Rfam assigns this 101-nucleotide RNA from Handroanthus impetiginosus to the family "mir-395 microRNA precursor family". mir-395 was identified in both Arabidopsis thaliana and Oryza sativa computationally and was later experimentally verified. mir-395 is thought to target mRNAs coding for ATP sulphurylases. Gene Ontology terms of the family: miRNA-mediated post-transcriptional gene silencing and RISC complex. Pairs were carried over by alignment from the consensus structure, which was predicted with PFOLD. NCBI's taxonomy places the organism under Eukaryota, eudicotyledons, Crescentiina, Tabebuia alliance, Handroanthus.
[Rfam]
RNA sequence: AUGUGCCCUAGAGUUCCCUUCAAACACUUCAGAGGGUUCAUGUAUGUUUGCUUAAUAAUUAUUGACUCCACUGAAGUGUUUGGGGGAACUCCUGGGCUCGU
Dot-bracket structure: ....((((..((((((((((.(((((((((((.(((..............................))).)))))))))))))))))))))..))))....